[Rfam]
RNA sequence: CCGUACUAGUUGGGGAGUUAGCGGUGCCCUGUAACCUGCAAUCCGCUAUAGCAGGAAUGAAGUCCCUCUUGAGGCUCUGAUUUGUAUGGUCUGACCUACAUAAGUGGCGUUGAGAACUGGGUCCCACGCAACAGAGAUUUGUGAACCUCGUCAGGUCCGGAAGGAAGCAGCGAUAAGCAAACACCUCUGUGUGCCGUGGAUUAACCUGGUUUGAGUUAACUGUGUGGGUAACGCAUAUGGAUCAUUGUCAAGGGAGGGUGUACGG
Numbered sequence: 001c002c003g004u005a006c007u008a009g010u011u012g013g014g015g016a017g018u019u020a021g022c023g024g025u026g027c028c029c030u031g032u033a034a035c036c037u038g039c040a041a042u043c044c045g046c047u048a049u050a051g052c053a054g055g056a057a058u059g060a061a062g063u064c065c066c067u068c069u070u071g072a073g074g075c076u077c078u079g080a081u082u083u084g085u086a087u088g089g090u091c092u093g094a095c096c097u098a099c100a101u102a103a104g105u106g107g108c109g110u111u112g113a114g115a116a117c118u119g120g121g122u123c124c125c126a127c128g129c130a131a132c133a134g135a136g137a138u139u140u141g142u143g144a145a146c147c148u149c150g151u152c153a154g155g156u157c158c159g160g161a162a163g164g165a166a167g168c169a170g171c172g173a174u175a176a177g178c179a180a181a182c183a184c185c186u187c188u189g190u191g192u193g194c195c196g197u198g199g200a201u202u203a204a205c206c207u208g209g210u211u212u213g214a215g216u217u218a219a220c221u222g223u224g225u226g227g228g229u230a231a232c233g234c235a236u237a238u239g240g241a242u243c244a245u246u247g248u249c250a251a252g253g254g255a256g257g258g259u260g261u262a263c264g265g
Stems, first nucleotide, its partner, number of pairs: 001265006009058003012030004017025003035055005064258007073249003079243010092230002096227006104220002106217003114212009124199005129191002132189005138181005148173004156165003